[Rfam]
drz-agam-1 ribozyme: a 79-nucleotide RNA from Hermetia illucens. The source organism's lineage runs through Eukaryota, Arthropoda, Hexapoda, Diptera and Hermetia. It scores 41 bits against the family's covariance model. The family has 7 seed sequences and 10,507 matches in Rfam 15.1.
RNA sequence: UGCUGCUAAACCCUAUCUCUACCUCCACGUGGUGACCGUUGGGAGCUCUUUCUUAACGAAAAGCUGCAGACGGAAAAGG
Dot-bracket structure: ...........(((.(.((.(((.......)))..........((((.((.(.....))).))))......)).).)))
Numbered sequence: 001u002g003c004u005g006c007u008a009a010a011c012c013c014u015a016u017c018u019c020u021a022c023c024u025c026c027a028c029g030u031g032g033u034g035a036c037c038g039u040u041g042g043g044a045g046c047u048c049u050u051u052c053u054u055a056a057c058g059a060a061a062a063g064c065u066g067c068a069g070a071c072g073g074a075a076a077a078g079g
Stems, first nucleotide, its partner, number of pairs: 012079003016075001018073002021033003044065004049060002052058001
Gene Ontology term of the family: catalytic activity. A reference for the family is Webb et al. (2009), "Widespread occurrence of self-cleaving ribozymes", Science.